[Rfam]
RNA sequence: CGGGCAGGGGGGUUCCCGCCGACGGCGGGGCCUGCCCGACCGGCUGUGCUGAACGCGCGGCCAGUGGUUGUCGCUCGGGGGUGAACGCCG
Numbered sequence: 001c002g003g004g005c006a007g008g009g010g011g012g013u014u015c016c017c018g019c020c021g022a023c024g025g026c027g028g029g030g031c032c033u034g035c036c037c038g039a040c041c042g043g044c045u046g047u048g049c050u051g052a053a054c055g056c057g058c059g060g061c062c063a064g065u066g067g068u069u070g071u072c073g074c075u076c077g078g079g080g081g082u083g084a085a086c087g088c089c090g
Base pairs, nucleotide, nucleotide: 001038002037003036004035005034006033007032008031014030015029016028017027018026019025020024042062043061044060045059046058047057048056049055

Shown here is a 90-nucleotide sequence from Streptomyces sp. ADI96-02, a member of the family "che1 RNA". Lineage of the source: Bacteria > Bacillati > Kitasatosporales > Streptomycetaceae > Streptomyces. The base pairs follow the family's consensus structure, which is taken from published work. Rfam classes the family as a small RNA.